[Rfam]
Rfam assigns this 124-nucleotide RNA from Lupinus angustifolius to the family "MIR396 microRNA precursor family". A search with the family's covariance model found it, with a score of 90 bits.
RNA sequence: CUUUGUACUCUUCCACAGCUUUCUUGAACUGCAGCAUCUAAAGGGUUUCUUUGCAUGCAUGCCAUGGCAUCUUGCUCCAAUACCUUGUUUUGCGGUUCAAUAAAGCUGUGGGAAGAUACAGAUA
Numbered sequence: 001c002u003u004u005g006u007a008c009u010c011u012u013c014c015a016c017a018g019c020u021u022u023c024u025u026g027a028a029c030u031g032c033a034g035c036a037u038c039u040a041a042a043g044g045g046u047u048u049c050u051u052u053g054c055a056u057g058c059a060u061g062c063c064a065u066g067g068c069a070u071c072u073u074g075c076u077c078c079a080a081u082a083c084c085u086u087g088u089u090u091u092g093c094g095g096u097u098c099a100a101u102a103a104a105g106c107u108g109u110g111g112g113a114a115g116a117u118a119c120a121g122a123u124a
Stems, first nucleotide, its partner, number of pairs: 003121005013111003017107006024100004029095005

The organism belongs to Lupinus, within Eukaryota. A reference for the family is Sunkar et al. (2005), "Cloning and characterization of microRNAs from rice", Plant Cell. Rfam links the family to the GO terms RISC complex and miRNA-mediated post-transcriptional gene silencing.